A member of the RNA family "mir-393 microRNA precursor family" from Cocos nucifera, 98 nucleotides long. A search with the family's covariance model found it, with a score of 74 bits.
RNA sequence: CGAGGGAGCAUCCAAAGGGAUCGCAUUGAUCCGUUCUUCACUUGCAUUCUUUCGUGGCAAUGGAACCCGGAUCAUGCGAUCCUUUUGGAUCCCUCCUC
Numbered sequence: 001c002g003a004g005g006g007a008g009c010a011u012c013c014a015a016a017g018g019g020a021u022c023g024c025a026u027u028g029a030u031c032c033g034u035u036c037u038u039c040a041c042u043u044g045c046a047u048u049c050u051u052u053c054g055u056g057g058c059a060a061u062g063g064a065a066c067c068c069g070g071a072u073c074a075u076g077c078g079a080u081c082c083u084u085u086u087g088g089a090u091c092c093c094u095c096c097u098c
Base pairs, nucleotide, nucleotide: 002098003097004096005095006094008092010090011089012088013087014086015085016084017083018082019081020080021079023077024076025075026074028073029072030071031070032069
Gene Ontology terms of the family: RISC complex and miRNA-mediated post-transcriptional gene silencing. The organism belongs to Cocos, within Eukaryota.